[Rfam]
RNA sequence: AGGAGCCCAACAGGAGCGACUUGAGAUCACAUGAGCUGGAUAAAAAGCAUUCGUGUUACUAUAUGUGCUUCAUGUGUUCUCAGGUCGCCCCUGCAGGACUUUC
Numbered sequence: 001a002g003g004a005g006c007c008c009a010a011c012a013g014g015a016g017c018g019a020c021u022u023g024a025g026a027u028c029a030c031a032u033g034a035g036c037u038g039g040a041u042a043a044a045a046a047g048c049a050u051u052c053g054u055g056u057u058a059c060u061a062u063a064u065g066u067g068c069u070u071c072a073u074g075u076g077u078u079c080u081c082a083g084g085u086c087g088c089c090c091c092u093g094c095a096g097g098a099c100u101u102u103c
Stems, first nucleotide, its partner, number of pairs: 007097002011093004016088004023081004028076005
Source information: A member of the RNA family "MIR398 microRNA precursor family" from Nyssa sinensis, 103 nucleotides long. On this family, see Jones-Rhoades and Bartel, Mol Cell 2004: "Computational identification of plant microRNAs and their targets, including a stress-induced miRNA". Lineage of the source: Eukaryota > Streptophytina > Euphyllophyta > Gunneridae > Nyssa.